[Rfam]
RNA sequence: AAGCGAAGGUUCCCAGCGGAGAGGAAGAUACUCUUAGACGAGACCUCUCUAACACUUGAAAAGUAUAUUCCUUCGCAUAUUUAAUUAUGGCCGAUUCAAACAACGCUUCAGAUUUUCCUCUUUUGUUGCGUUUAGAACCCUUUUGGCCAUAUUCCU
Numbered sequence: 001a002a003g004c005g006a007a008g009g010u011u012c013c014c015a016g017c018g019g020a021g022a023g024g025a026a027g028a029u030a031c032u033c034u035u036a037g038a039c040g041a042g043a044c045c046u047c048u049c050u051a052a053c054a055c056u057u058g059a060a061a062a063g064u065a066u067a068u069u070c071c072u073u074c075g076c077a078u079a080u081u082u083a084a085u086u087a088u089g090g091c092c093g094a095u096u097c098a099a100a101c102a103a104c105g106c107u108u109c110a111g112a113u114u115u116u117c118c119u120c121u122u123u124u125g126u127u128g129c130g131u132u133u134a135g136a137a138c139c140c141u142u143u144u145g146g147c148c149a150u151a152u153u154c155c156u
Base pairs, nucleotide, nucleotide: 003076004075005074006073007072008071009070012021014019024049025048031042032041033040090147091146092145093144094143102132103131105129106128109125110124111123112122

The record is a 156-nucleotide sequence, which matches "Small nucleolar RNA snoR145" in Rfam.
Gene Ontology terms of the family: nucleolus and RNA processing.
It scores 74 bits against the family's covariance model.
The family has 19 seed sequences and 286 matches in Rfam 15.1.